Annotation: Rfam assigns this 149-nucleotide RNA from Hymenochirus boettgeri to the family "Wolbachia sRNA 46". NCBI's taxonomy places the organism under Eukaryota, Metazoa, Teleostomi, Euteleostomi, Hymenochirus. Pairs were carried over by alignment from the consensus structure. The match comes from Rfam's covariance-model search (66 bits).
RNA sequence: GCAAUAUGAAGGAAAAAGAUGUCACUCAGGGGUCUUUUGACGAAAACAGCUUUUUAUUGUACAAUCACAUCUACGCGUAGAUGUGAUUGUACAAUAAAAAGCUGUUUUCGUCAAAAGACCCGUGAGUGACAUCUUUUCCUUCAUAUAUA
Numbered sequence: 001g002c003a004a005u006a007u008g009a010a011g012g013a014a015a016a017a018g019a020u021g022u023c024a025c026u027c028a029g030g031g032g033u034c035u036u037u038u039g040a041c042g043a044a045a046a047c048a049g050c051u052u053u054u055u056a057u058u059g060u061a062c063a064a065u066c067a068c069a070u071c072u073a074c075g076c077g078u079a080g081a082u083g084u085g086a087u088u089g090u091a092c093a094a095u096a097a098a099a100a101g102c103u104g105u106u107u108u109c110g111u112c113a114a115a116a117g118a119c120c121c122g123u124g125a126g127u128g129a130c131a132u133c134u135u136u137u138c139c140u141u142c143a144u145a146u147a148u149a
Base pairs, nucleotide, nucleotide: 011144014141015140020131021130022129023128024127025126026125027124028123030121031120032119033118034117035116036115037114038113039112040111041110042109043108044107045106046105047104048103049102050101